[Rfam]
RNA sequence: ACGCCGUCCCGAGCGGCGAUGCCGGCCUCGCAGGGCCAAGGCUGCGGGGGUGGUGCCGUGUCGGCGCAGCACCACCCCCGUGAC
Numbered sequence: 001a002c003g004c005c006g007u008c009c010c011g012a013g014c015g016g017c018g019a020u021g022c023c024g025g026c027c028u029c030g031c032a033g034g035g036c037c038a039a040g041g042c043u044g045c046g047g048g049g050g051u052g053g054u055g056c057c058g059u060g061u062c063g064g065c066g067c068a069g070c071a072c073c074a075c076c077c078c079c080g081u082g083a084c
Stems, first nucleotide, its partner, number of pairs: 002018006022040001025037001026035003044081013058067003
RNA: Streptomyces RNA 6106